[Rfam]
RNA sequence: UAUCCCAAUGAUGAUCAUGUUCAAAAAUUAAAGUAGUGGACUGAUAUAUAUGAUGAUUUGUUGAUUCAGAGGGGUC
Numbered sequence: 001u002a003u004c005c006c007a008a009u010g011a012u013g014a015u016c017a018u019g020u021u022c023a024a025a026a027a028u029u030a031a032a033g034u035a036g037u038g039g040a041c042u043g044a045u046a047u048a049u050a051u052g053a054u055g056a057u058u059u060g061u062u063g064a065u066u067c068a069g070a071g072g073g074g075u076c
Base pairs, nucleotide, nucleotide: 002075003074004073005072006071
Dot-bracket structure: .(((((................................................................))))).